The record is an 88-nucleotide RNA from Chengkuizengella marina, which matches "BsrC" in Rfam. It is annotated as a small RNA. The organism belongs to Chengkuizengella, within Bacteria.

RNA sequence: AUAUCCUAAAACAACAAAAGCCCUACCUCUCUUUUGUCCUUGCGGCUCCGAUGACCGCGCCAGUGUGAAUCAGUAAUACUUACAAACU
Numbered sequence: 001a002u003a004u005c006c007u008a009a010a011a012c013a014a015c016a017a018a019a020g021c022c023c024u025a026c027c028u029c030u031c032u033u034u035u036g037u038c039c040u041u042g043c044g045g046c047u048c049c050g051a052u053g054a055c056c057g058c059g060c061c062a063g064u065g066u067g068a069a070u071c072a073g074u075a076a077u078a079c080u081u082a083c084a085a086a087c088u
Base pairs, nucleotide, nucleotide: 034068035067036066039063040062041059042058043057044056045055047053
The 301 nucleotide sequence from Kouji Nakamura has been trimmed to a highly conserved ~85 nucleotide long core to form this family.